[Rfam]
A member of the RNA family "mir-87 microRNA precursor family" from Effrenium voratum, 85 nucleotides long.

RNA sequence: UGCAAGGGUACCUGAAAUCCGGGUCAUCCCCUCUGAUUAUUUUUUUAAAGAGAGGGGAUGACCCAGAUUUCAGGUAUCCUUGCAC
Numbered sequence: 001u002g003c004a005a006g007g008g009u010a011c012c013u014g015a016a017a018u019c020c021g022g023g024u025c026a027u028c029c030c031c032u033c034u035g036a037u038u039a040u041u042u043u044u045u046u047a048a049a050g051a052g053a054g055g056g057g058a059u060g061a062c063c064c065a066g067a068u069u070u071c072a073g074g075u076a077u078c079c080u081u082g083c084a085c
Base pairs, nucleotide, nucleotide: 002083003082004081005080006079007078009076010075011074012073013072014071015070017068018067019066021064023062024061025060026059028056029055030054
Rfam links the family to the GO terms miRNA-mediated post-transcriptional gene silencing and RISC complex. Pairs were carried over by alignment from the consensus structure, which was predicted with RNAalifold.